[Rfam]
RNA sequence: AAAAAGGGCUUCUGUCGUGAGUGGCACACGUAGGGCAACUCGUUUGCUCUACGUGCGGAAUCGACAUCAAGAAGUGGGAUAACUAACCCUCAGGACAGUUAUCCAUUACUAUAGAUAACAAACCG
Numbered sequence: 001a002a003a004a005a006g007g008g009c010u011u012c013u014g015u016c017g018u019g020a021g022u023g024g025c026a027c028a029c030g031u032a033g034g035g036c037a038a039c040u041c042g043u044u045u046g047c048u049c050u051a052c053g054u055g056c057g058g059a060a061u062c063g064a065c066a067u068c069a070a071g072a073a074g075u076g077g078g079a080u081a082a083c084u085a086a087c088c089c090u091c092a093g094g095a096c097a098g099u100u101a102u103c104c105a106u107u108a109c110u111a112u113a114g115a116u117a118a119c120a121a122a123c124c125g
Base pairs, nucleotide, nucleotide: 008075009074010073011072012071013026014025015024016023017022027055028054029053030052031051032050033049034048035047036046037045038044093123098119099118100117101116102115104114107111
Rfam assigns this 125-nucleotide RNA from Moschus moschiferus to the family "U11 spliceosomal RNA". The literature on the family includes a 1988 paper in Proc Natl Acad Sci U S A by Montzka and Steitz, "Additional low-abundance human small nuclear ribonucleoproteins: U11, U12, etc". Its Rfam clan is "U1 clan". Lineage of the source: Eukaryota > Metazoa > Mammalia > Artiodactyla > Moschus. Pairs were carried over by alignment from the consensus structure, which is taken from published work.